[Rfam]
RNA: Bacteroidales small SRP
RNA sequence: UUGCGGUGGGUAAGUCUUUUACGACCAGCUCCCCGAGAAUCCCCCAGGGUGGGAACGCAGCAAGGGUAUCGGGUUGUAGCGGUGCGAUAAAAGGAGCUUGCCCAUUU
Numbered sequence: 001u002u003g004c005g006g007u008g009g010g011u012a013a014g015u016c017u018u019u020u021a022c023g024a025c026c027a028g029c030u031c032c033c034c035g036a037g038a039a040u041c042c043c044c045c046a047g048g049g050u051g052g053g054a055a056c057g058c059a060g061c062a063a064g065g066g067u068a069u070c071g072g073g074u075u076g077u078a079g080c081g082g083u084g085c086g087a088u089a090a091a092a093g094g095a096g097c098u099u100g101c102c103c104a105u106u107u
Base pairs, nucleotide, nucleotide: 008103009102010101011100012099013098014097015096017092018091019090020089021088022086023085024083025082